This 73-nucleotide RNA sequence from Bombyx mori belongs to the Rfam family "mir-252 microRNA precursor family". Clan: mir-252 microRNA precursor family. The family has 44 seed sequences and 422 matches in Rfam 15.1. The literature on the family includes a 2009 paper in BMC Genomics by Li et al., "Direct sequencing and expression analysis of a large number of miRNAs in Aedes aegypti and a multi-species survey of novel mosquito miRNAs".
Nucleotides: 073
Base pairs, nucleotide, nucleotide: 001073002072003071004070005069006068007067010064011063012062013061014060015059016058017057019055024050025049026048027047028046029045030044
Number, partner (000 for none) and nucleotide at each position: 001073c002072c003071u004070u005069g006068u007067u008000c009000c010064u011063a012062a013061g014060u015059a016058c017057u018000a019055g020000u021000g022000c023000c024050g025049c026048a027047g028046g029045a030044g031000c032000g033000u034000u035000u036000u037000g038000u039000a040000g041000u042000a043000u044030c045029u046028c047027c048026u049025g050024c051000u052000g053000c054000c055019u056000a057017a058016g059015u060014g061013c062012u063011u064010a065000u066000c067007a068006a069005u070004g071003a072002g073001g